Notes:
Rfam assigns this 130-nucleotide RNA sequence from Cavia porcellus to the family "Small nucleolar RNA SNORA1". Rfam's curators write: ACA1 is a member of the H/ACA class of snoRNA that guide the sites of modification of uridines to pseudouridines. The source organism's lineage runs through Eukaryota, Dipnotetrapodomorpha, Amniota, Mammalia and Cavia. Rfam classes the family as an H/ACA-box small nucleolar RNA.
RNA sequence: AACCUCUUCCAGAUAGAAGGGGCACCACUGAUUGGUGUCCACUACCUGGUCAGUGUGACUGAAUCGAGACACAGAUCAUGCUCUAUCACAGUAAACAUUUACAGUGGUUACAUUGAGAUCUGUGACAUUU
Number, nucleotide and partner (000 for none) at each position: 001a000002a000003c000004c057005u000006c055007u000008u053009c000010c000011a000012g000013a000014u000015a000016g000017a000018a000019g000020g040021g039022g038023c037024a036025c035026c000027a000028c000029u000030g000031a000032u000033u000034g000035g025036u024037g023038u022039c021040c020041a000042c000043u000044a000045c000046c000047u000048g000049g000050u000051c000052a000053g008054u000055g006056u000057g004058a000059c000060u000061g000062a000063a000064u000065c000066g000067a000068g000069a000070c000071a123072c122073a121074g120075a119076u000077c000078a000079u000080g000081c000082u000083c000084u000085a108086u107087c106088a105089c104090a000091g000092u000093a000094a000095a000096c000097a000098u000099u000100u000101a000102c000103a000104g089105u088106g087107g086108u085109u000110a000111c000112a000113u000114u000115g000116a000117g000118a000119u075120c074121u073122g072123u071124g000125a000126c000127a000128u000129u000130u000